The record is an 89-nucleotide RNA sequence, which matches "DUF3800-X RNA" in Rfam.
Nucleotides: 089
Stems, first nucleotide, its partner, number of pairs: 001089006028082008048061005
Number, partner (000 for none) and nucleotide at each position: 001089g002088g003087g004086u005085g006084g007000g008000u009000a010000a011000c012000c013000g014000c015000g016000g017000g018000g019000a020000u021000a022000c023000c024000c025000g026000c027000c028082u029081c030080c031079u032078c033077c034076c035075c036000g037000a038000a039000a040000g041000g042000g043000u044000g045000a046000g047000g048061c049060c050059g051058c052057c053000g054000g055000a056000c057052g058051g059050c060049g061048g062000a063000c064000c065000a066000g067000a068000g069000c070000g071000a072000g073000u074000a075035g076034g077033g078032g079031a080030g081029g082028g083000g084006c085005c086004a087003c088002c089001u
Pairs were carried over by alignment from the consensus structure, which is taken from published work. By type it is a small RNA.